[Rfam]
RNA sequence: GGGAGUAGCUAGUAACCUGGUGGCGCUCACGGCCUUCAAAGCCGAUGGGGGGUGCAUCCCAUCCCCGGUGGGUUCGAUUCCCAUCUACUCCC
Numbered sequence: 001g002g003g004a005g006u007a008g009c010u011a012g013u014a015a016c017c018u019g020g021u022g023g024c025g026c027u028c029a030c031g032g033c034c035u036u037c038a039a040a041g042c043c044g045a046u047g048g049g050g051g052g053u054g055c056a057u058c059c060c061a062u063c064c065c066c067g068g069u070g071g072g073u074u075c076g077a078u079u080c081c082c083a084u085c086u087a088c089u090c091c092c
Stems, first nucleotide, its partner, number of pairs: 001092008011027003016023002030044004048066005069083004